Shown here is a 108-nucleotide sequence from Bacillus yapensis, a member of the family "SAM riboswitch aptamer (S box leader)". The match comes from Rfam's covariance-model search (95 bits). Pairs were carried over by alignment from the consensus structure, which is taken from published work.
[Rfam]
RNA sequence: UUCUUAUCCAGAGAGGUGGAGGGAUUUGGCCCUAAGAAACCUCGGCAACAGACUCAUUUUAUGAGAACUGUGCCAAUUCCAUCAAGCAGAUUGCUUGAAAGAUAAGAC
Numbered sequence: 001u002u003c004u005u006a007u008c009c010a011g012a013g014a015g016g017u018g019g020a021g022g023g024a025u026u027u028g029g030c031c032c033u034a035a036g037a038a039a040c041c042u043c044g045g046c047a048a049c050a051g052a053c054u055c056a057u058u059u060u061a062u063g064a065g066a067a068c069u070g071u072g073c074c075a076a077u078u079c080c081a082u083c084a085a086g087c088a089g090a091u092u093g094c095u096u097g098a099a100a101g102a103u104a105a106g107a108c
Stems, first nucleotide, its partner, number of pairs: 002107007013043005021032003027081003044074004049070002053065003078100001083097006
The SAM riboswitch is found upstream of a number of genes which code for proteins involved in methionine or cysteine biosynthesis in Gram-positive bacteria.
Rfam 15.1 lists 9,625 matches to the family in 4,158 species.